RNA: SAM/SAH riboswitch aptamer
Organism: Frigidibacter albus
RNA sequence: CAACCGUCACAACGGCUUCCUGGCGUGACGGGAAUUCACCAAUGGAGCG
Number, nucleotide and partner (000 for none) at each position: 001c000002a000003a000004c031005c030006g029007u028008c027009a026010c025011a000012a000013c022014g021015g048016c047017u046018u000019c045020c044021u014022g013023g000024c000025g010026u009027g008028a007029c006030g005031g004032g000033a000034a000035u000036u000037c000038a000039c000040c000041a000042a000043u000044g020045g019046a017047g016048c015049g000